[Rfam]
RNA sequence: GUCGGUCUUCGGUAGUGGCCUUUCGGCAGGGAUCGUCCGCCGGCGGGCUUCGAUCGAUGACCGCC
Numbered sequence: 001g002u003c004g005g006u007c008u009u010c011g012g013u014a015g016u017g018g019c020c021u022u023u024c025g026g027c028a029g030g031g032a033u034c035g036u037c038c039g040c041c042g043g044c045g046g047g048c049u050u051c052g053a054u055c056g057a058u059g060a061c062c063g064c065c
Stems, first nucleotide, its partner, number of pairs: 001065001003063005009057005017049005023043005029037001
The family of this 65-nucleotide RNA from Nocardia arthritidis is "Actino-pnp RNA". The base pairs follow the family's consensus structure, which is taken from published work. A search with the family's covariance model found it, with a score of 58 bits. Rfam classes the family as a cis-regulatory element.